Shown here is a 54-nucleotide sequence from Pseudoalteromonas galatheae, a member of the family "Guanidine-II riboswitch aptamer (mini-ykkC)". On this family, see Weinberg et al., Nucleic Acids Res 2007: "Identification of 22 candidate structured RNAs in bacteria using the CMfinder comparative genomics pipeline".
[Rfam]
RNA sequence: UCUGGUGGACGACCUCCAGAGCAGAGCUUUCUUUUACUGGCGGGGACGACCCCA
Numbered sequence: 001u002c003u004g005g006u007g008g009a010c011g012a013c014c015u016c017c018a019g020a021g022c023a024g025a026g027c028u029u030u031c032u033u034u035u036a037c038u039g040g041c042g043g044g045g046a047c048g049a050c051c052c053c054a
Stems, first nucleotide, its partner, number of pairs: 001020005007014002042053004
About this RNA
The source organism's lineage runs through Bacteria, Pseudomonadota, Gammaproteobacteria, Pseudoalteromonadaceae and Pseudoalteromonas. It scores 34 bits against the family's covariance model.